Rfam assigns this 57-nucleotide sequence from Capsicum annuum to the family "Plastid-rps18 3UTR RNA".
Rfam 15.1 lists 1,462 matches to the family in 409 species.
Pairs were carried over by alignment from the consensus structure, which was predicted with LocARNA.
A search with the family's covariance model found it, with a score of 64 bits.
The source organism's lineage runs through Eukaryota, Streptophytina, Embryophyta, eudicotyledons and Capsicum.
About the family: Plastid rps18 is a non-coding RNA (ncRNA) present in plastids. It was identified as a short stem-loop motif in the 3 prime untranslate region (3UTR) of rps18 gene.
By type it is a cis-regulatory element.

RNA sequence: UGCAUGUAUUUUAUGAUUAAGAAGCAAUCGUUUUUUAUACAAAUUGUAUAUUAAUUU
Numbered sequence: 001u002g003c004a005u006g007u008a009u010u011u012u013a014u015g016a017u018u019a020a021g022a023a024g025c026a027a028u029c030g031u032u033u034u035u036u037a038u039a040c041a042a043a044u045u046g047u048a049u050a051u052u053a054a055u056u057u
Stems, first nucleotide, its partner, number of pairs: 018037008